[Rfam]
RNA sequence: GCUACAAACCGAACUAUCGUGUCGUCUUUUGACGGCAAGGAAAGUCUGGACAGCGCAGAGCAAAUGCACCGGUGAACAGCCGGGUGUUUCGAGCAAUCGGAGCAACAGAAAGUGCCACAGAAAAUAACUAUCCUGCUCACGCGGGAAAAAGGUGAAAAUGUGGGGUAAGAGCCCACGGCCGUAUGCAGUAAUGCAUACAGCGGGUAAACCUUGCAUGCUGAAAUGCCACGUAUACCGGCGCCCGAGGGCUGCUCGCCCGAUGCCGGAGGGUAGGCAGAUUGAUCCCUGGAAGUAAUUCCCGGGACAGAUAAAUGAUAGUGUAAAAACAGAAUCCGGCUUAUGAGUUUGUAGCUUUU
Numbered sequence: 001g002c003u004a005c006a007a008a009c010c011g012a013a014c015u016a017u018c019g020u021g022u023c024g025u026c027u028u029u030u031g032a033c034g035g036c037a038a039g040g041a042a043a044g045u046c047u048g049g050a051c052a053g054c055g056c057a058g059a060g061c062a063a064a065u066g067c068a069c070c071g072g073u074g075a076a077c078a079g080c081c082g083g084g085u086g087u088u089u090c091g092a093g094c095a096a097u098c099g100g101a102g103c104a105a106c107a108g109a110a111a112g113u114g115c116c117a118c119a120g121a122a123a124a125u126a127a128c129u130a131u132c133c134u135g136c137u138c139a140c141g142c143g144g145g146a147a148a149a150a151g152g153u154g155a156a157a158a159u160g161u162g163g164g165g166u167a168a169g170a171g172c173c174c175a176c177g178g179c180c181g182u183a184u185g186c187a188g189u190a191a192u193g194c195a196u197a198c199a200g201c202g203g204g205u206a207a208a209c210c211u212u213g214c215a216u217g218c219u220g221a222a223a224u225g226c227c228a229c230g231u232a233u234a235c236c237g238g239c240g241c242c243c244g245a246g247g248g249c250u251g252c253u254c255g256c257c258c259g260a261u262g263c264c265g266g267a268g269g270g271u272a273g274g275c276a277g278a279u280u281g282a283u284c285c286c287u288g289g290a291a292g293u294a295a296u297u298c299c300c301g302g303g304a305c306a307g308a309u310a311a312a313u314g315a316u317a318g319u320g321u322a323a324a325a326a327c328a329g330a331a332u333c334c335g336g337c338u339u340a341u342g343a344g345u346u347u348g349u350a351g352c353u354u355u356u
Base pairs, nucleotide, nucleotide: 001352002351003350004349005348006347007346008345009344011341013319014318015317016316017315018314020037021036022035023034024033025032026031042339043338044337046336047335048334049333050332051220052219053218054217060253064216065215066214067213068212069083070082071081072080073079084106085104086103087102088101089100090099091098092097107211108210112209113208114205115204116203128151129150131146132145133144134143135142136141159177160176161175162174163173164172181198182197183196184195185194186193187192224276225275226274227273235266236265237264238263239262246258247257248256249255284303285302286301288299289298290297291296
Rfam assigns this 356-nucleotide sequence from Pinibacter aurantiacus to the family "Bacterial RNase P class A". The organism belongs to Pinibacter, within Bacteria. By type it is a ribozyme.